[Rfam]
RNA sequence: UUCCACAGCUACUGGCCUGAAACUGUUCUGUUAUGUAGCAGUUCCAGUAUUCCAACUGUGGAAGAUCAGCAGUUACACUGUGUAGUUCUCUUAAAUCCAUUGGGGAACAGAACUUCAGUGUAACAGACAGUA
Numbered sequence: 001u002u003c004c005a006c007a008g009c010u011a012c013u014g015g016c017c018u019g020a021a022a023c024u025g026u027u028c029u030g031u032u033a034u035g036u037a038g039c040a041g042u043u044c045c046a047g048u049a050u051u052c053c054a055a056c057u058g059u060g061g062a063a064g065a066u067c068a069g070c071a072g073u074u075a076c077a078c079u080g081u082g083u084a085g086u087u088c089u090c091u092u093a094a095a096u097c098c099a100u101u102g103g104g105g106a107a108c109a110g111a112a113c114u115u116c117a118g119u120g121u122a123a124c125a126g127a128c129a130g131u132a
Stems, first nucleotide, its partner, number of pairs: 003061004017047003021043005075121005089107001091105002
RNA: Small nucleolar RNA SNORA41